[Rfam]
RNA sequence: CACUCCGGUGCCACGGGCGAUCUCCCCAAGGACCACGGGAGAGAAAGAACCCGCACCAAGCCCCACCCCUCCUCCCGCCCGCGCAGCUCACCCGCCCGGGUGAACAUCACCAACUCAGCUGGAUUUCGGCCCGGUUGCUUGCCCUACUCUCAGCGCAACGCAGCAACACAACCGCACACAUGCAACGGCCCCCGCCGGGACGGCAAUCCCGAUGCGAGGGCCUGACCACCAAGGAAGAGAACAGCUUCCCG
Numbered sequence: 001c002a003c004u005c006c007g008g009u010g011c012c013a014c015g016g017g018c019g020a021u022c023u024c025c026c027c028a029a030g031g032a033c034c035a036c037g038g039g040a041g042a043g044a045a046a047g048a049a050c051c052c053g054c055a056c057c058a059a060g061c062c063c064c065a066c067c068c069c070u071c072c073u074c075c076c077g078c079c080c081g082c083g084c085a086g087c088u089c090a091c092c093c094g095c096c097c098g099g100g101u102g103a104a105c106a107u108c109a110c111c112a113a114c115u116c117a118g119c120u121g122g123a124u125u126u127c128g129g130c131c132c133g134g135u136u137g138c139u140u141g142c143c144c145u146a147c148u149c150u151c152a153g154c155g156c157a158a159c160g161c162a163g164c165a166a167c168a169c170a171a172c173c174g175c176a177c178a179c180a181u182g183c184a185a186c187g188g189c190c191c192c193c194g195c196c197g198g199g200a201c202g203g204c205a206a207u208c209c210c211g212a213u214g215c216g217a218g219g220g221c222c223u224g225a226c227c228a229c230c231a232a233g234g235a236a237g238a239g240a241a242c243a244g245c246u247u248c249c250c251g
Base pairs, nucleotide, nucleotide: 007230008229009228010227016079017078018077019076088103089102090101091100092099093098118154119153120152121151122150187222188221189220190219191218193216194215195214197210198209199208200207233249234248235247236246237245
Shown here is a 251-nucleotide sequence from Streptomyces sp. WM6386, a member of the family "Streptomyces sRNA 4677". Rfam describes the family as follows. Located in the intergenic region between anti-sigma factor SCO4677 gene and a putative regulatory protein gene SCO4676. scr4677 expression requires the SCO4677 activity and scr4677 sRNA itself seem to affect the levels of the SCO4676-associated transcripts. The family has 12 seed sequences and 563 matches in Rfam 15.1. NCBI's taxonomy places the organism under Bacteria, Actinomycetota, Actinomycetes, Kitasatosporales, Streptomyces.